Rfam assigns this 135-nucleotide RNA sequence from Otariodibacter oris to the family "Histidine operon leader". The family's consensus secondary structure is taken from published work. The family's RNA type in Rfam is cis-regulatory leader. At least 6 amino acid operons are known to be regulated by attenuation. In each a leader sequence of 150-200 bp is found upstream of the first gene in the operon. This leader sequence can assume two different secondary structures known as the terminator and the anti-terminator structure. In each case the leader also codes for very short peptide sequence that is rich in the end product amino acid of the operon. A search with the family's covariance model found it, with a score of 74 bits.
RNA sequence: UCAUCAUCACCAUUUACCUGAUUAAUCUUUCGGGCAUUUGGGUGUGUUCGGAAGAAACUUCCGAGCAUAAAAUGUGAUAACGACUGUUUAGAAUAUUUUACCCCUCGGGAGUCCCACUUCCGAGGGGUUAUUUUU
Numbered sequence: 001u002c003a004u005c006a007u008c009a010c011c012a013u014u015u016a017c018c019u020g021a022u023u024a025a026u027c028u029u030u031c032g033g034g035c036a037u038u039u040g041g042g043u044g045u046g047u048u049c050g051g052a053a054g055a056a057a058c059u060u061c062c063g064a065g066c067a068u069a070a071a072a073u074g075u076g077a078u079a080a081c082g083a084c085u086g087u088u089u090a091g092a093a094u095a096u097u098u099u100a101c102c103c104c105u106c107g108g109g110a111g112u113c114c115c116a117c118u119u120c121c122g123a124g125g126g127g128u129u130a131u132u133u134u135u
Base pairs, nucleotide, nucleotide: 008046009045010044011040012039017034018033019032020031021030047065048064049063050062051061052060053059054058098130100128101127102126103125104124105123106122107121108120109119110118111117